[Rfam]
RNA sequence: GGUAGUUCUUGUGUGACACACCCUGGAAUCGGGGCUCCCUCCUCUCUGGUUCCGGGUGCAUCACUGGAGAACCAUA
Numbered sequence: 001g002g003u004a005g006u007u008c009u010u011g012u013g014u015g016a017c018a019c020a021c022c023c024u025g026g027a028a029u030c031g032g033g034g035c036u037c038c039c040u041c042c043u044c045u046c047u048g049g050u051u052c053c054g055g056g057u058g059c060a061u062c063a064c065u066g067g068a069g070a071a072c073c074a075u076a
Stems, first nucleotide, its partner, number of pairs: 002075002005072006013064004019058005025053009

The record is a 76-nucleotide RNA from Cnephaeus nilssonii, which matches "mir-9223 microRNA precursor family" in Rfam.
The base pairs follow the family's consensus structure, which was predicted with RNAalifold.
It scores 73 bits against the family's covariance model.
Gene Ontology terms of the family: RISC complex and miRNA-mediated post-transcriptional gene silencing.